[Rfam]
RNA sequence: GAAGUAGGCUAGACAGCCGCUGGUCGUAUAUUGAAAACUAUAUGGCGGGAGGAAGGUCCGGACUCCAUAGAGCAGGGUGACGGUUAAUUGCCGUCCGCCGUGAGGCGAGGAAUAGGGCCACAGAGACGAGCGUAUUAGGUUACGGUGAAACGCGGUAACCUCCACCCGGAGCAAUUCCAAAUAGGCACGCGUUGAUGUUGCUCGCGGAGCGUGCGGGUAGGAAGCUUGAGUGCUGGAGCAAUUCAGCGCCUAGAAGGAUGGCUGUCAUAAUGAUCGGGCGCAAGUCUUAUUGUCGUAACAGAAUCCGGCCUAUCGGCUUACUUCGUUU
Dot-bracket structure: ((((((((((((((((((.((.((((((((........)))))))).))....[[[.[[[[[((((...[[[[.((((((((((.....)))))(((((....)))).)((...(((((...........((((......)))).........)))..)))))))))))))...((((......((((((.....(((.]]]])))..)))))).....))))......((((((((....))))))))..........))))))).....................................]]]]]]]].).))))))))))....
RNA: Bacterial RNase P class A